[Rfam]
RNA sequence: AUAUUAGACGAAAUUGGGAACAUCCCAUAAUAAUUAUAUAUUCUCGUCGAGAAUAUAUAACGUCAAUGGUUCGUCGUGUACGAUCCUCUGCGAGUUGUUUAUCUUCACAGCAGAUUACGUGAGUAAGAGUUUGGAGCAUUUGUAAAAUGGGCCAACAUUUUGUUAGUAUU
Numbered sequence: 001a002u003a004u005u006a007g008a009c010g011a012a013a014u015u016g017g018g019a020a021c022a023u024c025c026c027a028u029a030a031u032a033a034u035u036a037u038a039u040a041u042u043c044u045c046g047u048c049g050a051g052a053a054u055a056u057a058u059a060a061c062g063u064c065a066a067u068g069g070u071u072c073g074u075c076g077u078g079u080a081c082g083a084u085c086c087u088c089u090g091c092g093a094g095u096u097g098u099u100u101a102u103c104u105u106c107a108c109a110g111c112a113g114a115u116u117a118c119g120u121g122a123g124u125a126a127g128a129g130u131u132u133g134g135a136g137c138a139u140u141u142g143u144a145a146a147a148u149g150g151g152c153c154a155a156c157a158u159u160u161u162g163u164u165a166g167u168a169u170u
Base pairs, nucleotide, nucleotide: 009073010072011071012070013028014027016025017024018023034060035059036058039055040054041053042052043051044050045049088113089112090111091110115126116125117124118123131155132154133153134152